[Rfam]
The family of this 72-nucleotide RNA sequence from Xanthomonas campestris is "Xanthomonas sRNA sX9". The family has 16 seed sequences and 309 matches in Rfam 15.1. The base pairs follow the family's consensus structure, which was predicted with RNAalifold. The match comes from Rfam's covariance-model search (48 bits). The organism belongs to Xanthomonas campestris pv. campestris, within Bacteria.
RNA sequence: GCAUUCCCCCGUACGCGCCGGUUCCGAGCGCUGUCCUCCCACCUGACGGCUGCUCGCUAAGUUUUGUUAGCG
Numbered sequence: 001g002c003a004u005u006c007c008c009c010c011g012u013a014c015g016c017g018c019c020g021g022u023u024c025c026g027a028g029c030g031c032u033g034u035c036c037u038c039c040c041a042c043c044u045g046a047c048g049g050c051u052g053c054u055c056g057c058u059a060a061g062u063u064u065u066g067u068u069a070g071c072g
Base pairs, nucleotide, nucleotide: 001014003012004011019033020032021031022030024028043070044069045068046067047066048065049064